[Rfam]
RNA sequence: CUGCGGGACCGGGCCCCUCUGGCGGCCGUUCUUCAGGAACGAUCGUGAUGUCGGACCGCAUCG
Number, nucleotide and partner (000 for none) at each position: 001c000002u000003g000004c000005g000006g057007g056008a000009c054010c053011g052012g051013g000014c000015c000016c000017c000018u000019c000020u000021g000022g046023c045024g044025g043026c000027c041028g040029u039030u038031c037032u000033u000034c000035a000036g000037g031038a030039a029040c028041g027042a000043u025044c024045g023046u022047g000048a000049u000050g000051u012052c011053g010054g009055a000056c007057c006058g000059c000060a000061u000062c000063g000

This 63-nucleotide RNA sequence from Allosphingosinicella deserti belongs to the Rfam family "terC RNA".
The organism belongs to Allosphingosinicella, within Bacteria.
It is annotated as a cis-regulatory element.